Shown here is a 57-nucleotide RNA from Saccharomonospora sp. CUA-673, a member of the family "Actino-pnp RNA". The family's RNA type in Rfam is cis-regulatory element. It scores 57 bits against the family's covariance model.
RNA sequence: GCCGGUCCUCGGUAGUGGCUCCCGGGAGGUUUCCCGAGGCUUCGAUCGAUGGCCGGC
Dot-bracket structure: (((((((.(((((...((((..(((((....))))).))))...))))).)))))))